[Rfam]
RNA sequence: AGAAUAUUGCAACAGUAAUCGAAGUUAGUACGAGAGGAACACUUCGUUCAGAUACUUGGUAAAUGCUACCAGCUGAAAAGCUAUUGUUGCAAAGCUACCAUCUGUUGGAUUACGACUGAACGCCUCUAAAUCGGAAUCUUGUCUGGCUAUGUAAUGUUGUCAUCAUUGCUGUUUGUAAAUGACAAUUGUAGGCUUGGGCAUUAAUUCGUGCUAUACUCUGUGGUUGGAAUGUUAGGUUCAUUGGUGCAUUGUGAACUUGAAAUGAUAAAUCUACUGUAAACGACUUUGCUGUGUCCAGGUAUUGUAAGUGCUGAGAGUGGUGUGUGUGCUGCGAUUCACUGAGGUUCUUCCUGUGUUUUUGAUUUGU
Numbered sequence: 001a002g003a004a005u006a007u008u009g010c011a012a013c014a015g016u017a018a019u020c021g022a023a024g025u026u027a028g029u030a031c032g033a034g035a036g037g038a039a040c041a042c043u044u045c046g047u048u049c050a051g052a053u054a055c056u057u058g059g060u061a062a063a064u065g066c067u068a069c070c071a072g073c074u075g076a077a078a079a080g081c082u083a084u085u086g087u088u089g090c091a092a093a094g095c096u097a098c099c100a101u102c103u104g105u106u107g108g109a110u111u112a113c114g115a116c117u118g119a120a121c122g123c124c125u126c127u128a129a130a131u132c133g134g135a136a137u138c139u140u141g142u143c144u145g146g147c148u149a150u151g152u153a154a155u156g157u158u159g160u161c162a163u164c165a166u167u168g169c170u171g172u173u174u175g176u177a178a179a180u181g182a183c184a185a186u187u188g189u190a191g192g193c194u195u196g197g198g199c200a201u202u203a204a205u206u207c208g209u210g211c212u213a214u215a216c217u218c219u220g221u222g223g224u225u226g227g228a229a230u231g232u233u234a235g236g237u238u239c240a241u242u243g244g245u246g247c248a249u250u251g252u253g254a255a256c257u258u259g260a261a262a263u264g265a266u267a268a269a270u271c272u273a274c275u276g277u278a279a280a281c282g283a284c285u286u287u288g289c290u291g292u293g294u295c296c297a298g299g300u301a302u303u304g305u306a307a308g309u310g311c312u313g314a315g316a317g318u319g320g321u322g323u324g325u326g327u328g329c330u331g332c333g334a335u336u337c338a339c340u341g342a343g344g345u346u347c348u349u350c351c352u353g354u355g356u357u358u359u360u361g362a363u364u365u366g367u
Stems, first nucleotide, its partner, number of pairs: 003158008013145003018048001020046006049104005057097003064091003068087001071082004107139002113133003117129001165263003169259001171257001267365005272288002276284001293357001295355001297352003301345002308339003314335001317332005